[Rfam]
RNA sequence: AAGUCACAAUCAACAUUCAUUGCUGUCGGUGGGUUGUGAUGCUGAAGGGAAAACUCACGGAUCAAUGAAUGCAACUGUGAUUGG
Number, nucleotide and partner (000 for none) at each position: 001a000002a000003g082004u080005c079006a078007c077008a076009a000010u000011c000012a000013a000014c071015a070016u069017u068018c067019a066020u065021u064022g063023c000024u000025g062026u061027c060028g000029g058030u057031g056032g000033g054034u053035u052036g000037u000038g000039a000040u000041g000042c000043u000044g000045a000046a000047g000048g000049g000050a000051a000052a035053a034054c033055u000056c031057a030058c029059g000060g027061a026062u025063c022064a021065a020066u019067g018068a017069a016070u015071g014072c000073a000074a000075c000076u008077g007078u006079g005080a004081u000082u003083g000084g000
About this RNA:
Rfam assigns this 84-nucleotide RNA from Alligator mississippiensis to the family "mir-181 microRNA precursor family". The family's consensus secondary structure was predicted with PFOLD.